Purine riboswitch aptamer: a 102-nucleotide RNA sequence from Ornithinibacillus hominis. Riboswitches are metabolite binding domains within certain messenger RNAs that serve as precision sensors for their corresponding targets. Its family is annotated with purine nucleobase biosynthetic process in the Gene Ontology.

[Rfam]
RNA sequence: UAAACAAUUUCAUAUUAUUUUCAUAUAAUCGCGGGGAUAUGGCUCGCAAGUUUCUACCAGCUUACCGUAAAUGAGCUGACUAUGAAAAGUAGCCGAAUGAUA
Numbered sequence: 001u002a003a004a005c006a007a008u009u010u011c012a013u014a015u016u017a018u019u020u021u022c023a024u025a026u027a028a029u030c031g032c033g034g035g036g037a038u039a040u041g042g043c044u045c046g047c048a049a050g051u052u053u054c055u056a057c058c059a060g061c062u063u064a065c066c067g068u069a070a071a072u073g074a075g076c077u078g079a080c081u082a083u084g085a086a087a088a089g090u091a092g093c094c095g096a097a098u099g100a101u102a
Stems, first nucleotide, its partner, number of pairs: 018088008029049001031047005058078007
The base pairs follow the family's consensus structure, which is taken from published work.